[Rfam]
RNA sequence: CGUCGUGACCUGCCGAAUCCAUGCAGCCAUGAGGCAUGGAACCGGGGAACCAAAGGCAUGCUCCCAUUGCCAGGGGUGAAUCGGCACGCCGUUGUGCCGUAGGGCGUCUUCCCUGCCCGAAUCCGUCAGCUAACCCGGUAGGCAUCAGUGGAAGUCCCA
Numbered sequence: 001c002g003u004c005g006u007g008a009c010c011u012g013c014c015g016a017a018u019c020c021a022u023g024c025a026g027c028c029a030u031g032a033g034g035c036a037u038g039g040a041a042c043c044g045g046g047g048a049a050c051c052a053a054a055g056g057c058a059u060g061c062u063c064c065c066a067u068u069g070c071c072a073g074g075g076g077u078g079a080a081u082c083g084g085c086a087c088g089c090c091g092u093u094g095u096g097c098c099g100u101a102g103g104g105c106g107u108c109u110u111c112c113c114u115g116c117c118c119g120a121a122u123c124c125g126u127c128a129g130c131u132a133a134c135c136c137g138g139u140a141g142g143c144a145u146c147a148g149u150g151g152a153a154g155u156c157c158c159a
Stems, first nucleotide, its partner, number of pairs: 011144004018040007041139006051073001074124003082099004102118004

Shown here is a 159-nucleotide RNA from Planomonospora parontospora, a member of the family "c-di-AMP riboswitch aptamer (ydaO/yuaA leader)". It scores 87 bits against the family's covariance model. Gene Ontology terms of the family: cyclic-di-AMP binding and regulation of gene expression.